[Rfam]
RNA sequence: GCGUCGGCAUAGCUCAGUGGUUACUUCGUGUUACUAAACAUGGUCACCUGCGAACCCUCGGGUUGCUGGUUCGACCACGGGCGCUGUCCGAUGUAUUU
Numbered sequence: 001g002c003g004u005c006g007g008c009a010u011a012g013c014u015c016a017g018u019g020g021u022u023a024c025u026u027c028g029u030g031u032u033a034c035u036a037a038a039c040a041u042g043g044u045c046a047c048c049u050g051c052g053a054a055c056c057c058u059c060g061g062g063u064u065g066c067u068g069g070u071u072c073g074a075c076c077a078c079g080g081g082c083g084c085u086g087u088c089c090g091a092u093g094u095a096u097u098u
Base pairs, nucleotide, nucleotide: 002093003092004091005090006089007088012082013081014080015079017078018077019076020075026074027073028072
Vault RNA: a 98-nucleotide sequence from Betta splendens. The family's consensus secondary structure is taken from published work. The source organism's lineage runs through Eukaryota, Eumetazoa, Euteleosteomorpha, Neoteleostei and Betta. The match comes from Rfam's covariance-model search (65 bits). By type it is a non-coding RNA gene. A reference for the family is Stadler et al. (2009), "Evolution of Vault RNAs", Mol Biol Evol.